[Rfam]
RNA sequence: AGCGCAGCAGGUCAGGCAGCAUCCAAGGAGCAGGAGAUUCCCCUGCUCCUUGGAUGCUGCCUGACCUGCUGCGCUUU
Numbered sequence: 001a002g003c004g005c006a007g008c009a010g011g012u013c014a015g016g017c018a019g020c021a022u023c024c025a026a027g028g029a030g031c032a033g034g035a036g037a038u039u040c041c042c043c044u045g046c047u048c049c050u051u052g053g054a055u056g057c058u059g060c061c062u063g064a065c066c067u068g069c070u071g072c073g074c075u076u077u
Stems, first nucleotide, its partner, number of pairs: 001075012015061006022054003026050007033042002
mir-2756 microRNA precursor family: a 77-nucleotide RNA from Chiloscyllium punctatum.